[Rfam]
RNA sequence: UCACCUUUUAAAAAAGUCCAGAGAGGCUUUCAAGGGUGUGUGGGACAAAUCAUGCUUCGUCAUUUGCUUACACCCUGUCAUGCCUUGGCAGGGUGUUUUUUUA
Numbered sequence: 001u002c003a004c005c006u007u008u009u010a011a012a013a014a015a016g017u018c019c020a021g022a023g024a025g026g027c028u029u030u031c032a033a034g035g036g037u038g039u040g041u042g043g044g045a046c047a048a049a050u051c052a053u054g055c056u057u058c059g060u061c062a063u064u065u066g067c068u069u070a071c072a073c074c075c076u077g078u079c080a081u082g083c084c085u086u087g088g089c090a091g092g093g094u095g096u097u098u099u100u101u102u103a
Stems, first nucleotide, its partner, number of pairs: 003037006013030006046066005052060003070096011
Shown here is a 103-nucleotide RNA from Aeribacillus pallidus, a member of the family "PyrR binding site". It scores 59 bits against the family's covariance model. For this family Rfam cites "Molecular recognition of pyr mRNA by the Bacillus subtilis attenuation regulatory protein PyrR" (Bonner et al., Nucleic Acids Res, 2001). Gene Ontology terms of the family: pyrimidine nucleobase transport and pyrimidine nucleobase biosynthetic process. Pairs were carried over by alignment from the consensus structure, which is taken from published work.